Background:
mir-156 microRNA precursor family: an 83-nucleotide RNA sequence from Nicotiana attenuata. The family has 10 seed sequences and 1,401 matches in Rfam 15.1. The base pairs follow the family's consensus structure, which was predicted with PFOLD. This family represents the plant microRNA (miRNA) precursor mir-156. Lineage of the source: Eukaryota > Viridiplantae > lamiids > Nicotianeae > Nicotiana. A search with the family's covariance model found it, with a score of 88 bits.
RNA sequence: GUGACAGAAGAGAGUGAGCACAUAUGGUGUUUUCUUGCAUAUGAUAUGCUUGAAGCUAUGCGUGCUCACUCUCUAUCUGUCAC
Numbered sequence: 001g002u003g004a005c006a007g008a009a010g011a012g013a014g015u016g017a018g019c020a021c022a023u024a025u026g027g028u029g030u031u032u033u034c035u036u037g038c039a040u041a042u043g044a045u046a047u048g049c050u051u052g053a054a055g056c057u058a059u060g061c062g063u064g065c066u067c068a069c070u071c072u073c074u075a076u077c078u079g080u081c082a083c
Base pairs, nucleotide, nucleotide: 001083002082003081004080005079006078007077008076010073011072012071013070014069015068016067017066018065019064020063021062023060024059025058